[Rfam]
RNA sequence: UGAAUUUAAUAAGAGAUACGUCGUAUAAAGUCGGGAAUAUGGCCCGAAAGUUUCUACCAAGCUACCGUAAAUGGCUUGACUACGAGGUACGUGCAGGUAAAG
Dot-bracket structure: .................((.(((((.....(((((.......)))))..........(((((((.......)))))))..))))).))..............
Rfam assigns this 102-nucleotide RNA from Mangrovibacillus cuniculi to the family "Purine riboswitch aptamer". It scores 86 bits against the family's covariance model. The organism belongs to Mangrovibacillus, within Bacteria.